[Rfam]
RNA: Bacterial RNase P class A
RNA sequence: GCGGAUGGCUGGAUGGCCGCGGGCCUUGAGGUUCGAGGAAAGUCCGGACUCCGAAAAGCACGGUGCCGGGUAACGCCCGGCGGGGGUAACCCUAGGGAUAGCGCCACAGAGAACAGACUACCUGUCCUGCGGGACAGGAAAAGGUGAAACGGUGGGGUAAGAGCCCACCGCGCGGGUGGCAACACCAGCGGCAUGGCAAGCCCCACCGGGAGCAAUGCCAAAUAGGGACCACGCGUGGUGGUGAUCCUGCUCGCAGGAUAUCAGCCACGGGCAGGCUUGAGGCUCAUGUGGUUCGGGUUGGCAGCUAGAGGGCGUCUGGCAACAGACGCUCCAGAUGAAUGGUCAUCCAUCCGCCUUUGGCGGAGGACAGAAUCCGGCUUAUAGGCCGUCCGCGCAU
Numbered sequence: 001g002c003g004g005a006u007g008g009c010u011g012g013a014u015g016g017c018c019g020c021g022g023g024c025c026u027u028g029a030g031g032u033u034c035g036a037g038g039a040a041a042g043u044c045c046g047g048a049c050u051c052c053g054a055a056a057a058g059c060a061c062g063g064u065g066c067c068g069g070g071u072a073a074c075g076c077c078c079g080g081c082g083g084g085g086g087u088a089a090c091c092c093u094a095g096g097g098a099u100a101g102c103g104c105c106a107c108a109g110a111g112a113a114c115a116g117a118c119u120a121c122c123u124g125u126c127c128u129g130c131g132g133g134a135c136a137g138g139a140a141a142a143g144g145u146g147a148a149a150c151g152g153u154g155g156g157g158u159a160a161g162a163g164c165c166c167a168c169c170g171c172g173c174g175g176g177u178g179g180c181a182a183c184a185c186c187a188g189c190g191g192c193a194u195g196g197c198a199a200g201c202c203c204c205a206c207c208g209g210g211a212g213c214a215a216u217g218c219c220a221a222a223u224a225g226g227g228a229c230c231a232c233g234c235g236u237g238g239u240g241g242u243g244a245u246c247c248u249g250c251u252c253g254c255a256g257g258a259u260a261u262c263a264g265c266c267a268c269g270g271g272c273a274g275g276c277u278u279g280a281g282g283c284u285c286a287u288g289u290g291g292u293u294c295g296g297g298u299u300g301g302c303a304g305c306u307a308g309a310g311g312g313c314g315u316c317u318g319g320c321a322a323c324a325g326a327c328g329c330u331c332c333a334g335a336u337g338a339a340u341g342g343u344c345a346u347c348c349a350u351c352c353g354c355c356u357u358u359g360g361c362g363g364a365g366g367a368c369a370g371a372a373u374c375c376g377g378c379u380u381a382u383a384g385g386c387c388g389u390c391c392g393c394g395c396a397u
Base pairs, nucleotide, nucleotide: 001393002392003391004390005389006388007387008386009385010384011382012347013346014345015344016343017342018341020035021034022033023032024031025030040380041379042378044377045376046375047374048373049212050211051210052209059275061208062207063206064205065204066080067079068078069077070076081095082093083092084091085090096203097202101201102200103197104196105195118143119142121138122137123136124135125134126133127132151169152168153167154166155165156164170192171190172189173188175186176185177184178183216303217302218301219300226294227293228292229291230290231289311330312329313328314327315326316325317324318323